[Rfam]
Background:
The family of this 90-nucleotide RNA sequence from Pseudomonas sp. HPB0071 is "ivy-DE RNA". The source organism's lineage runs through Bacteria, Pseudomonadati, Gammaproteobacteria, Pseudomonadales and Pseudomonas. The family's RNA type in Rfam is cis-regulatory element.
RNA sequence: AGGCCAAGGGGCUUGGGUGCUUUGCGGUAAGAGGAGCAUCCUCAGGGUACAGGGAGUACCUUCGUCGUUACGAGCCAGGCUGGACGAUAU
Dot-bracket structure: .((((....((((.((((.((((.(.....).)))).))))..(((((((.....)))))))..........)))).)))).........